[Rfam]
RNA sequence: UGGACAUUUACUAUUAUUCUGUUUCUUCUUAAGGUGAAGAUAACUAACUCUUUAUAAAAUACUAGAGAACUAUAAUAGCUUUCUGUUCACCCUUUGCAAGUAAAAAAGGUGGAUCGUUCUUCUCCUGACAUUU
Numbered sequence: 001u002g003g004a005c006a007u008u009u010a011c012u013a014u015u016a017u018u019c020u021g022u023u024u025c026u027u028c029u030u031a032a033g034g035u036g037a038a039g040a041u042a043a044c045u046a047a048c049u050c051u052u053u054a055u056a057a058a059a060u061a062c063u064a065g066a067g068a069a070c071u072a073u074a075a076u077a078g079c080u081u082u083c084u085g086u087u088c089a090c091c092c093u094u095u096g097c098a099a100g101u102a103a104a105a106a107a108g109g110u111g112g113a114u115c116g117u118u119c120u121u122c123u124c125c126u127g128a129c130a131u132u133u
Stems, first nucleotide, its partner, number of pairs: 002062001004060001007058004021044003024040005073127002077123002093106003
This 133-nucleotide sequence from Chrysochloris asiatica belongs to the Rfam family "Small Cajal body specific RNA 24". It is annotated as a small Cajal body RNA. The family's consensus secondary structure was predicted with RNAfold. scaRNAs are a specific class of small nuclear RNAs which localise to the Cajal bodies and guide the modification of RNA polymerase II transcribed spliceosomal RNAs U1, U2, U4, U5 and U12. ACA12 belongs to the H/ACA box class of guide RNAs as it has the predicted hairpin-hinge-hairpin-tail structure,the conserved H/ACA-box motifs and is found associated with GAR1. Taxonomically the source falls in Chrysochloris (Eukaryota, Chordata, Craniata, Sarcopterygii). The match comes from Rfam's covariance-model search (96 bits).